[Rfam]
RNA sequence: GACAUCGUGAGGUGGAAUCUGAAGGAAGGGGCAGGCAAAUUUCUGACCUGACAAAGAGAAUCCGCAUAAGGCCAAUUUGAGAUGGAUAAGGUCGCCAAACAGAUUAAAGUCCCAUAGCGAUUUGGAAUCCCAAAGGGUAGAUGCGGCAGGUGAAGGGAGAAAAAGAGUGCGUU
Number, nucleotide and partner (000 for none) at each position: 001g000002a000003c014004a013005u012006c011007g000008u000009g000010a000011g006012g005013u004014g003015g000016a000017a000018u000019c000020u000021g000022a000023a000024g000025g000026a000027a000028g173029g172030g000031g170032c169033a000034g000035g000036c165037a000038a000039a000040u160041u159042u158043c157044u156045g000046a151047c150048c149049u148050g147051a000052c000053a000054a000055a000056g000057a000058g000059a000060a000061u000062c146063c145064g144065c143066a142067u000068a000069a000070g000071g138072c137073c136074a000075a000076u134077u133078u132079g131080a000081g129082a128083u000084g112085g111086a110087u109088a000089a000090g105091g104092u103093c102094g000095c000096c000097a000098a000099a000100c000101a000102g093103a092104u091105u090106a000107a000108a000109g087110u086111c085112c084113c000114a000115u000116a000117g000118c000119g000120a000121u000122u000123u000124g000125g000126a000127a000128u082129c081130c000131c079132a078133a077134a076135g000136g073137g072138u071139a000140g000141a000142u066143g065144c064145g063146g062147c050148a049149g048150g047151u046152g000153a000154a000155g000156g044157g043158a042159g041160a040161a000162a000163a000164a000165g036166a000167g000168u000169g032170c031171g000172u029173u028